[Rfam]
RNA sequence: UGGUGUGGGAAAGGUCCAACCUCACAUGUCCUGUGUCACUGAAGGAAGGCUGUGUGAGGUCAGACCUAUCUCACAUAG
Numbered sequence: 001u002g003g004u005g006u007g008g009g010a011a012a013g014g015u016c017c018a019a020c021c022u023c024a025c026a027u028g029u030c031c032u033g034u035g036u037c038a039c040u041g042a043a044g045g046a047a048g049g050c051u052g053u054g055u056g057a058g059g060u061c062a063g064a065c066c067u068a069u070c071u072c073a074c075a076u077a078g
Stems, first nucleotide, its partner, number of pairs: 001078001004075007012067005019060003023056006030049003

This 78-nucleotide sequence from Oncorhynchus tshawytscha belongs to the Rfam family "mir-2188 microRNA precursor family". The family's consensus secondary structure was predicted with RNAalifold.